Rfam assigns this 148-nucleotide RNA from Mesobaculum littorinae to the family "FMN riboswitch aptamer (RFN element)". The source organism's lineage runs through Bacteria, Pseudomonadati, Alphaproteobacteria, Roseobacteraceae and Mesobaculum. Gene Ontology term of the family: FMN binding.
RNA sequence: ACACGUUCUCAGGGCGGGGUGAAAUUCCCCACCGGCGGUAAGCGGCCCCGGUCGCAAGCCCGCGAGCGCCUUUCGCCUGGCGAAAGGGUCAGCAGAUCAGGUGCGAUUCCUGAGCCGACGGUCACAGUCCGGAUGGAAGAGAAUAUGU
Numbered sequence: 001a002c003a004c005g006u007u008c009u010c011a012g013g014g015c016g017g018g019g020u021g022a023a024a025u026u027c028c029c030c031a032c033c034g035g036c037g038g039u040a041a042g043c044g045g046c047c048c049c050g051g052u053c054g055c056a057a058g059c060c061c062g063c064g065a066g067c068g069c070c071u072u073u074c075g076c077c078u079g080g081c082g083a084a085a086g087g088g089u090c091a092g093c094a095g096a097u098c099a100g101g102u103g104c105g106a107u108u109c110c111u112g113a114g115c116c117g118a119c120g121g122u123c124a125c126a127g128u129c130c131g132g133a134u135g136g137a138a139g140a141g142a143a144u145a146u147g148u
Stems, first nucleotide, its partner, number of pairs: 003146001005144006017029003031128002033117002035063004058115002066093002097113005119131003